RNA: T-box leader
RNA sequence: CAAAUAUCAAUGAUAAAGAGAGUAGUUACUUUGCAGCGUUGAAGCGAGUUAGGGAGGGUGUGAGCCUAAUACGAAGCAGGUAAUGAACCGGACUUUUGAGAUGUCUGCCUGAAUAUAAAGUAGGGCAGAACGGGGAAAACCUCGUUAACAAUAAUUGAGUUGGUUCUUAUGGAACAAUUAGAGUGGCAACGCGGGAUAACUAUGUACUCUCGUCUCUUUC
Numbered sequence: 001c002a003a004a005u006a007u008c009a010a011u012g013a014u015a016a017a018g019a020g021a022g023u024a025g026u027u028a029c030u031u032u033g034c035a036g037c038g039u040u041g042a043a044g045c046g047a048g049u050u051a052g053g054g055a056g057g058g059u060g061u062g063a064g065c066c067u068a069a070u071a072c073g074a075a076g077c078a079g080g081u082a083a084u085g086a087a088c089c090g091g092a093c094u095u096u097u098g099a100g101a102u103g104u105c106u107g108c109c110u111g112a113a114u115a116u117a118a119a120g121u122a123g124g125g126c127a128g129a130a131c132g133g134g135g136a137a138a139a140c141c142u143c144g145u146u147a148a149c150a151a152u153a154a155u156u157g158a159g160u161u162g163g164u165u166c167u168u169a170u171g172g173a174a175c176a177a178u179u180a181g182a183g184u185g186g187c188a189a190c191g192c193g194g195g196a197u198a199a200c201u202a203u204g205u206a207c208u209c210u211c212g213u214c215u216c217u218u219u220c
Base pairs, nucleotide, nucleotide: 007101008100015096016095017094018093025084026083027082028081029080030079037073038072039071048070049069050068051067052066053065104129105128106127107126108125109124110123131144132143133142163175164174165173166172180217181216182215183214191213192212193211194210195209